Source information:
Shown here is a 511-nucleotide part of an RNA from Aliiroseovarius pelagivivens, a member of the family "Bacterial small subunit ribosomal RNA". The base pairs follow the family's consensus structure, which is taken from published work. Rfam links the family to the GO terms ribosome and structural constituent of ribosome. Taxonomically the source falls in Aliiroseovarius (Bacteria, Pseudomonadota, Alphaproteobacteria, Rhodobacterales). Rfam 15.1 lists 42,628 matches to the family in 10,626 species. A search with the family's covariance model found it, with a score of 1529 bits. The literature on the family includes a 2001 paper in Science by Yusupov et al., "Crystal structure of the ribosome at 5.5 A resolution".

[Rfam]
RNA sequence: CAACUUGAGAGUUUGAUCCUGGCUCAGAACGAACGCUGGCGGCAGGCCUAACACAUGCAAGUCGAGCGCAGUCCUUCGGGACCGAGCGGCGGACGGGUUAGUAACGCGUGGGAAUAUACCCAGUACUAAGGAAUAGCCUCUGGAAACGGAGAGUAAUACCUUAUACGCCCUUCGGGGGAAAGAUUUAUCGGUAUUGGAUUAGCCCGCGUUAGAUUAGAUAGUUGGUGGGGUAACGGCCUACCAAGUCGACGAUCUAUAGCUGGUUUGAGAGGAUGAUCAGCAACACUGGGACUGAGACACGGCCCAGACUCCUACGGGAGGCAGCAGUGGGGAAUCUUAGACAAUGGGCGCAAGCCUGAUCUAGCCAUGCCGCGUGAGUGAUGAAGGCCUUAGGGUCGUAAAGCUCUUUCGCCAGGGAUGAUAAUGACAGUACCUGGUAAAGAAACCCCGGCUAACUCCGUGCCAGCAGCCGCGGUAAUACGGAGGGGGUUAGCGUUGUUCGGAAUUACUG
Numbered sequence: 001c002a003a004c005u006u007g008a009g010a011g012u013u014u015g016a017u018c019c020u021g022g023c024u025c026a027g028a029a030c031g032a033a034c035g036c037u038g039g040c041g042g043c044a045g046g047c048c049u050a051a052c053a054c055a056u057g058c059a060a061g062u063c064g065a066g067c068g069c070a071g072u073c074c075u076u077c078g079g080g081a082c083c084g085a086g087c088g089g090c091g092g093a094c095g096g097g098u099u100a101g102u103a104a105c106g107c108g109u110g111g112g113a114a115u116a117u118a119c120c121c122a123g124u125a126c127u128a129a130g131g132a133a134u135a136g137c138c139u140c141u142g143g144a145a146a147c148g149g150a151g152a153g154u155a156a157u158a159c160c161u162u163a164u165a166c167g168c169c170c171u172u173c174g175g176g177g178g179a180a181a182g183a184u185u186u187a188u189c190g191g192u193a194u195u196g197g198a199u200u201a202g203c204c205c206g207c208g209u210u211a212g213a214u215u216a217g218a219u220a221g222u223u224g225g226u227g228g229g230g231u232a233a234c235g236g237c238c239u240a241c242c243a244a245g246u247c248g249a250c251g252a253u254c255u256a257u258a259g260c261u262g263g264u265u266u267g268a269g270a271g272g273a274u275g276a277u278c279a280g281c282a283a284c285a286c287u288g289g290g291a292c293u294g295a296g297a298c299a300c301g302g303c304c305c306a307g308a309c310u311c312c313u314a315c316g317g318g319a320g321g322c323a324g325c326a327g328u329g330g331g332g333a334a335u336c337u338u339a340g341a342c343a344a345u346g347g348g349c350g351c352a353a354g355c356c357u358g359a360u361c362u363a364g365c366c367a368u369g370c371c372g373c374g375u376g377a378g379u380g381a382u383g384a385a386g387g388c389c390u391u392a393g394g395g396u397c398g399u400a401a402a403g404c405u406c407u408u409u410c411g412c413c414a415g416g417g418a419u420g421a422u423a424a425u426g427a428c429a430g431u432a433c434c435u436g437g438u439a440a441a442g443a444a445a446c447c448c449c450g451g452c453u454a455a456c457u458c459c460g461u462g463c464c465a466g467c468a469g470c471c472g473c474g475g476u477a478a479u480a481c482g483g484a485g486g487g488g489g490u491u492a493g494c495g496u497u498g499u500u501c502g503g504a505a506u507u508a509c510u511g
Base pairs, nucleotide, nucleotide: 009025010024011023012022013021027501028500029499030498032497033496034495035494036493037492039373040372041371042370043369044368045366046365047331052329053328054327056326057325058324061090062089063088066087067086069084071082072081073080074079097284098283099282106209107208108207109206110205111204112203115201116200120197121196122195123194124193125192126191128162129161130160131159138151139150140149141148142147168177169176170175182189183188210256211255212254217247218246219245222244223243224242225241226240227239228238229237259281260280261279262278263274264273265272266271286307287306288305289304290303309320310319311318312317337363339362340361341360345358346357347356348355349354376406377405378404379403386397387396388395389394410442411438412437413436414435415434416433420428445490446489447488448487449486456485457484458483459482460481466473467472